[Rfam]
Rfam assigns this 109-nucleotide RNA sequence from Sorghum bicolor to the family "MIR5565 microRNA precursor family". Gene Ontology terms of the family: RISC complex and miRNA-mediated post-transcriptional gene silencing. Pairs were carried over by alignment from the consensus structure, which was predicted with RNAalifold.

RNA sequence: GUUGACGGAUUCAUUUCAAUCUAUAUGUAUUGGUGUGGGUUAGAGUAAAAUUUAGUUCAAGUUCCACUCUAAUUCACCUCAACACAUGUGGACUGAUGUGAAUACGACU
Numbered sequence: 001g002u003u004g005a006c007g008g009a010u011u012c013a014u015u016u017c018a019a020u021c022u023a024u025a026u027g028u029a030u031u032g033g034u035g036u037g038g039g040u041u042a043g044a045g046u047a048a049a050a051u052u053u054a055g056u057u058c059a060a061g062u063u064c065c066a067c068u069c070u071a072a073u074u075c076a077c078c079u080c081a082a083c084a085c086a087u088g089u090g091g092a093c094u095g096a097u098g099u100g101a102a103u104a105c106g107a108c109u
Stems, first nucleotide, its partner, number of pairs: 004108001006106002009103006016096003020092009030082003035077009045067002